The family of this 102-nucleotide RNA sequence from Agromyces protaetiae is "Glycine riboswitch aptamer". This family represents the bacterial glycine riboswitch. Glycine riboswitches usually consist of two metabolite-binding aptamers domains with similar structures in tandem. The aptamers cooperatively bind glycine to regulate the expression of downstream genes. NCBI's taxonomy places the organism under Bacteria, Bacillati, Micrococcales, Microbacteriaceae, Agromyces.
[Rfam]
RNA sequence: CAACGCAUCGCGGGAGAGCCGGGUAGCACCUCUGGUCAUGCCGGCACCGAAGGAGCAAGCCUCCCCGCCAAUCUCUCAGGUCACACAUACCGCGAUGAACAG
Numbered sequence: 001c002a003a004c005g006c007a008u009c010g011c012g013g014g015a016g017a018g019c020c021g022g023g024u025a026g027c028a029c030c031u032c033u034g035g036u037c038a039u040g041c042c043g044g045c046a047c048c049g050a051a052g053g054a055g056c057a058a059g060c061c062u063c064c065c066c067g068c069c070a071a072u073c074u075c076u077c078a079g080g081u082c083a084c085a086c087a088u089a090c091c092g093c094g095a096u097g098a099a100c101a102g
Stems, first nucleotide, its partner, number of pairs: 006097008019044004046081003049077002053075003059068002